The record is a 108-nucleotide RNA sequence from Zea mays, which matches "MIR5565 microRNA precursor family" in Rfam. The family has 7 seed sequences and 3,346 matches in Rfam 15.1. The match comes from Rfam's covariance-model search (94 bits). The base pairs follow the family's consensus structure, which was predicted with RNAalifold.
RNA sequence: UUAGUCAGGUUCGCAUCAAUCCACAUGUGUCGGGAUGGAUUGGAGCAGAACUUAACUAAAUUCCACCCCAAUCCACAUCAACACAUGUGGGUUGAGGUGAAUCCGACA
Numbered sequence: 001u002u003a004g005u006c007a008g009g010u011u012c013g014c015a016u017c018a019a020u021c022c023a024c025a026u027g028u029g030u031c032g033g034g035a036u037g038g039a040u041u042g043g044a045g046c047a048g049a050a051c052u053u054a055a056c057u058a059a060a061u062u063c064c065a066c067c068c069c070a071a072u073c074c075a076c077a078u079c080a081a082c083a084c085a086u087g088u089g090g091g092u093u094g095a096g097g098u099g100a101a102u103c104c105g106a107c108a
Base pairs, nucleotide, nucleotide: 004107005106006105008103009102010101011100012099013098014097016095017094018093019092020091021090022089023088024087025086026085027084028083029082030081032079036075037074038073039072040071041070042069043068045066